tRNA: a 74-nucleotide RNA from Colwellia chukchiensis. Transfer RNA (tRNA) molecules are approximately 80 nucleotides in length. A search with the family's covariance model found it, with a score of 56 bits.
[Rfam]
RNA sequence: CGGGGUAUAGCGCAGCCUGGUAGCGCGUGCGUCUGGGGGACGUGAGGUCGCAAGUUCGAAUCUUGCUACUCCGA
Number, nucleotide and partner (000 for none) at each position: 001c073002g072003g071004g070005g069006u068007a067008u000009a000010g026011c025012g024013c023014a000015g000016c000017c000018u000019g000020g000021u000022a000023g013024c012025g011026c010027g000028u044029g043030c042031g041032u040033c000034u000035g000036g000037g000038g000039g000040a032041c031042g030043u029044g028045a000046g000047g000048u000049c000050g066051c065052a064053a063054g062055u000056u000057c000058g000059a000060a000061u000062c054063u053064u052065g051066c050067u007068a006069c005070u004071c003072c002073g001074a000
Rfam links the family to the GO term triplet codon-amino acid adaptor activity.